[Rfam]
RNA: permuted transfer-messenger RNA
Organism: Marinicauda salina
RNA sequence: GGCGAUAAAGGCGCGUGUAAUAACCAGACCGGACCCGGGUGCGAAUCCCGGCGGCUCCACCAACUUCUUCCGGCUCGUUGGGCCGCGUUCAUGGGGCCGAAUUAGGAUCGACGGCUGGCUAAAGACGUAGCUUUCGCCCGCAUGGGCUCCGUUAUCAGCCCAUUGUUAAAGUUGCCAACGACAACUUUGCUGAAGAGGCCGUUCUCGCUGCGUAA
Numbered sequence: 001g002g003c004g005a006u007a008a009a010g011g012c013g014c015g016u017g018u019a020a021u022a023a024c025c026a027g028a029c030c031g032g033a034c035c036c037g038g039g040u041g042c043g044a045a046u047c048c049c050g051g052c053g054g055c056u057c058c059a060c061c062a063a064c065u066u067c068u069u070c071c072g073g074c075u076c077g078u079u080g081g082g083c084c085g086c087g088u089u090c091a092u093g094g095g096g097c098c099g100a101a102u103u104a105g106g107a108u109c110g111a112c113g114g115c116u117g118g119c120u121a122a123a124g125a126c127g128u129a130g131c132u133u134u135c136g137c138c139c140g141c142a143u144g145g146g147c148u149c150c151g152u153u154a155u156c157a158g159c160c161c162a163u164u165g166u167u168a169a170a171g172u173u174g175c176c177a178a179c180g181a182c183a184a185c186u187u188u189g190c191u192g193a194a195g196a197g198g199c200c201g202u203u204c205u206c207g208c209u210g211c212g213u214a215a
Stems, first nucleotide, its partner, number of pairs: 001138005013128004025117003029114003035051005052099007139151002142148001